RNA sequence: UCCAGUGGUAGUCAGCUAUCCAGGACAUUGCCAUUCCUGUGAUAGUGUUACACUACUGGUAGAUUAAUAGUCUGUCCUCUUGAUCUGGUCCCUAUUUUCACUGUUCUAGUGAUUUCUGGUAUCAGAAUAAACAGAAGGAAACUGUGCUUCCUCAAGAGUGUACUGAGCAGUCAUUUUGACUAUUCAUUGUUAGCACGGAAGCAAACAAA
Numbered sequence: 001u002c003c004a005g006u007g008g009u010a011g012u013c014a015g016c017u018a019u020c021c022a023g024g025a026c027a028u029u030g031c032c033a034u035u036c037c038u039g040u041g042a043u044a045g046u047g048u049u050a051c052a053c054u055a056c057u058g059g060u061a062g063a064u065u066a067a068u069a070g071u072c073u074g075u076c077c078u079c080u081u082g083a084u085c086u087g088g089u090c091c092c093u094a095u096u097u098u099c100a101c102u103g104u105u106c107u108a109g110u111g112a113u114u115u116c117u118g119g120u121a122u123c124a125g126a127a128u129a130a131a132c133a134g135a136a137g138g139a140a141a142c143u144g145u146g147c148u149u150c151c152u153c154a155a156g157a158g159u160g161u162a163c164u165g166a167g168c169a170g171u172c173a174u175u176u177u178g179a180c181u182a183u184u185c186a187u188u189g190u191u192a193g194c195a196c197g198g199a200a201g202c203a204a205a206c207a208a209a
Stems, first nucleotide, its partner, number of pairs: 002059008011051002015046006021039005071135005084126004088120003097112001099111004145203007160190003164186004169181002
Background: Rfam assigns this 209-nucleotide sequence from Sarcophilus harrisii to the family "Small nucleolar RNA SNORA74". Rfam 15.1 lists 1,348 matches to the family in 628 species. Gene Ontology terms of the family: nucleolus and RNA processing. From the family's description: U19 belongs to the H/ACA class of snoRNAs. snoRNAs bind a number of proteins (including dyskerin, Gar1p and Nop10p in the case of the H/ACA class) to form snoRNP complexes. It scores 94 bits against the family's covariance model. The family is grouped with related families in Rfam's "SNORA74 clan". Pairs were carried over by alignment from the consensus structure, which was predicted with PFOLD.